Shown here is an 87-nucleotide sequence from Hordeum vulgare, a member of the family "MIR1120/MIR1122 microRNA precursor family". A reference for the family is Yao et al. (2007), "Cloning and characterization of microRNAs from wheat (Triticum aestivum L.)", Genome Biol.
Nucleotides: 087
Base pairs, nucleotide, nucleotide: 003085004084005083007081008080009079010078011077013075014074015073016072017071019069020068021067022066023065024064026062027061028060029059030058031057032056033055034054035053037051038050039049040048041047
Number, partner (000 for none) and nucleotide at each position: 001000a002000u003085a004084c005083u006000c007081c008080c009079u010078u011077u012000g013075u014074c015073u016072c017071a018000u019069a020068a021067u022066a023065u024064a025000a026062g027061a028060g029059c030058g031057u032056u033055u034054u035053u036000a037051a038050c039049a040048c041047u042000a043000c044000a045000c046000u047041a048040g049039u050038g051037u052000c053035a054034a055033a056032a057031a058030c059029g060028c061027u062026u063000c064024u065023a066022u067021a068020u069019u070000a071017u072016g073015a074014g075013a076000c077011g078010g079009a080008g081007g082000g083005a084004g085003u086000a087000u
Annotation:
The family has 6 seed sequences and 44,765 matches in Rfam 15.1.